[Rfam]
This 98-nucleotide sequence from Clostridium sp. SM-530-WT-3G belongs to the Rfam family "Purine riboswitch aptamer".
RNA sequence: AAACGGAAGCACAUAAAUGCUCAUAUAUACCUUGGAUAUGGCAAGGAGUAUCUACCGGAAACCAAUAAUUUCCGACUAUGAGUGGUAUUAAUUACAAA
Numbered sequence: 001a002a003a004c005g006g007a008a009g010c011a012c013a014u015a016a017a018u019g020c021u022c023a024u025a026u027a028u029a030c031c032u033u034g035g036a037u038a039u040g041g042c043a044a045g046g047a048g049u050a051u052c053u054a055c056c057g058g059a060a061a062c063c064a065a066u067a068a069u070u071u072c073c074g075a076c077u078a079u080g081a082g083u084g085g086u087a088u089u090a091a092u093u094a095c096a097a098a
Base pairs, nucleotide, nucleotide: 018084019083020082021081022080023079024078025077030046031045032044033043034042056074057073058072059071060070061069
It scores 66 bits against the family's covariance model. NCBI's taxonomy places the organism under Bacteria, Bacillati, Bacillota, Clostridiaceae, Clostridium.